[Rfam]
RNA: MIR2629 microRNA precursor family
Organism: Medicago truncatula
RNA sequence: UGUCGAAGUUUUCCUCGGCAGUUAACUGCAGCCGGUUCUUUAAAAUUGAGGCAGUUAACUGCCGAGGGGCAU
Numbered sequence: 001u002g003u004c005g006a007a008g009u010u011u012u013c014c015u016c017g018g019c020a021g022u023u024a025a026c027u028g029c030a031g032c033c034g035g036u037u038c039u040u041u042a043a044a045a046u047u048g049a050g051g052c053a054g055u056u057a058a059c060u061g062c063c064g065a066g067g068g069g070c071a072u
Stems, first nucleotide, its partner, number of pairs: 012068002015065015